[Rfam]
Nucleotides: 071
Stems, first nucleotide, its partner, number of pairs: 007064003011060003017054004022049011
Number, partner (000 for none) and nucleotide at each position: 001000g002000c003000u004000g005000g006000g007064g008063c009062g010000g011060c012059a013058g014000u015000a016000g017054a018053a019052c020051c021000g022049u023048u024047a025046c026045c027044a028043u029042u030041a031040c032039u033000a034000a035000a036000g037000u038000c039032a040031g041030u042029a043028a044027u045026g046025g047024u048023a049022a050000c051020g052019g053018u054017u055000u056000c057000a058013u059012u060011g061000a062009c063008g064007c065000c066000c067000c068000a069000u070000g071000g